This 100-nucleotide sequence from Jatrophihabitans endophyticus belongs to the Rfam family "mraW RNA".
[Rfam]
RNA sequence: CCGCGACCUCGAGUUCCGGCCUCCUCCCGUCCGCCUCCUGGCGUCACUUCCCCGGUGCCAGGCGGGACGGGCGGGGACCAGAGUCCGAGGUCGAGCCCCG
Number, nucleotide and partner (000 for none) at each position: 001c000002c000003g000004c000005g000006a000007c000008c000009u000010c087011g086012a000013g084014u083015u082016c081017c000018g079019g078020c000021c076022u075023c074024c073025u000026c071027c070028c069029g068030u067031c066032c065033g000034c000035c064036u000037c062038c061039u060040g059041g058042c057043g056044u055045c000046a000047c000048u000049u000050c000051c000052c000053c000054g000055g044056u043057g042058c041059c040060a039061g038062g037063c000064g035065g032066g031067a030068c029069g028070g027071g026072c000073g024074g023075g022076g021077a000078c019079c018080a000081g016082a015083g014084u013085c000086c011087g010088a000089g000090g000091u000092c000093g000094a000095g000096c000097c000098c000099c000100g000